The record is a 68-nucleotide RNA from Drosophila melanogaster, which matches "mir-2 microRNA precursor family" in Rfam. Pairs were carried over by alignment from the consensus structure, which was predicted with PFOLD. The family has 56 seed sequences and 918 matches in Rfam 15.1. The organism belongs to Sophophora, within Eukaryota. A reference for the family is Lee and Ambros (2001), "An extensive class of small RNAs in Caenorhabditis elegans", Science.

RNA sequence: UAACGCGUCAAAAUGACUGUGAGCUAUGUGGAUUUGACUUCAUAUCACAGCCAUUUUGACGAGUUUGU
Numbered sequence: 001u002a003a004c005g006c007g008u009c010a011a012a013a014u015g016a017c018u019g020u021g022a023g024c025u026a027u028g029u030g031g032a033u034u035u036g037a038c039u040u041c042a043u044a045u046c047a048c049a050g051c052c053a054u055u056u057u058g059a060c061g062a063g064u065u066u067g068u
Base pairs, nucleotide, nucleotide: 006061007060008059009058010057011056012055013054014053015052017050018049019048020047021046022045025044026043027042